[Rfam]
RNA sequence: CACGGACAUCAGCGAUUCAUUCUGCGAGCCCUGACCGACGGCCAGAUAGGCAUUCAUGCCCAGCUCUUUCAUCUGCUCUUCGCCAAUCACGCGCGUGAUAGUGUUCUGGCUGUAAGUGUCGGCCAACUGACGUGCUUGAGACGCCAGAUACGCGGCAUUGCAGAUAUUCGGUGGCAUGUUGCCGAGAUCUUUUGC
Numbered sequence: 001c002a003c004g005g006a007c008a009u010c011a012g013c014g015a016u017u018c019a020u021u022c023u024g025c026g027a028g029c030c031c032u033g034a035c036c037g038a039c040g041g042c043c044a045g046a047u048a049g050g051c052a053u054u055c056a057u058g059c060c061c062a063g064c065u066c067u068u069u070c071a072u073c074u075g076c077u078c079u080u081c082g083c084c085a086a087u088c089a090c091g092c093g094c095g096u097g098a099u100a101g102u103g104u105u106c107u108g109g110c111u112g113u114a115a116g117u118g119u120c121g122g123c124c125a126a127c128u129g130a131c132g133u134g135c136u137u138g139a140g141a142c143g144c145c146a147g148a149u150a151c152g153c154g155g156c157a158u159u160g161c162a163g164a165u166a167u168u169c170g171g172u173g174g175c176a177u178g179u180u181g182c183c184g185a186g187a188u189c190u191u192u193u194g195c
Stems, first nucleotide, its partner, number of pairs: 005189002012032001014030001016028003020024001033043001035041001050059002062077003079134001081132002084129002087126001091123002095119003099112004136163003140159002143156003167186006
This 195-nucleotide RNA from Pectobacterium atrosepticum belongs to the Rfam family "Yersinia sRNA 276". The match comes from Rfam's covariance-model search (161 bits). The base pairs follow the family's consensus structure, which was predicted with RNAfold.